[Rfam]
RNA sequence: CCCGCCACUGCACCUGAUCAGCUCUGUUGGCUGGUGCGAUCCAGUGGUGAGCUGAAACUAAGCCCCAGUUUAGGAAACGGGGCUGUUCUUCUCGUGGAUGGCUCUGUGCCGAAAACAUGGGGACAAUC
Numbered sequence: 001c002c003c004g005c006c007a008c009u010g011c012a013c014c015u016g017a018u019c020a021g022c023u024c025u026g027u028u029g030g031c032u033g034g035u036g037c038g039a040u041c042c043a044g045u046g047g048u049g050a051g052c053u054g055a056a057a058c059u060a061a062g063c064c065c066c067a068g069u070u071u072a073g074g075a076a077a078c079g080g081g082g083c084u085g086u087u088c089u090u091c092u093c094g095u096g097g098a099u100g101g102c103u104c105u106g107u108g109c110c111g112a113a114a115a116c117a118u119g120g121g122g123a124c125a126a127u128c
Base pairs, nucleotide, nucleotide: 005047006046007045008044009043010042017035018034019033020032021031022029063121064120065119067118068116069115070114071113073110074109078106079105080104081103082102083101086098087097088096
The family of this 128-nucleotide sequence from Erinaceus europaeus is "Small nucleolar RNA SNORA65". Rfam classes the family as an H/ACA-box small nucleolar RNA. The base pairs follow the family's consensus structure, which was predicted with RNAalifold. Rfam describes the family as follows. U65 belongs to the H/ACA class of snoRNAs which are thought to guide the sites of modification of uridines to pseudouridines. It scores 121 bits against the family's covariance model.